[Rfam]
A member of the RNA family "mir-96 microRNA precursor family" from Neogobius melanostomus, 79 nucleotides long. Lineage of the source: Eukaryota > Vertebrata > Actinopteri > Ctenosquamata > Neogobius. Rfam links the family to the GO terms RISC complex and miRNA-mediated post-transcriptional gene silencing. On this family, see Mourelatos et al., Genes Dev 2002: "miRNPs: a novel class of ribonucleoproteins containing numerous microRNAs". The family's consensus secondary structure was predicted with RNAalifold. The match comes from Rfam's covariance-model search (86 bits).
RNA sequence: UUGCCCAGUUUGGCACUAGCACAUUUUUGCUUUGUUGUUCUCCACUUUGAGCAAUCAUGUGUAGUGCCAAUAUGGGAGA
Numbered sequence: 001u002u003g004c005c006c007a008g009u010u011u012g013g014c015a016c017u018a019g020c021a022c023a024u025u026u027u028u029g030c031u032u033u034g035u036u037g038u039u040c041u042c043c044a045c046u047u048u049g050a051g052c053a054a055u056c057a058u059g060u061g062u063a064g065u066g067c068c069a070a071u072a073u074g075g076g077a078g079a
Base pairs, nucleotide, nucleotide: 004076005075006074007073010070011069012068013067014066015065016064017063019062020061021060022059023058024057027054028053029052030051031050032049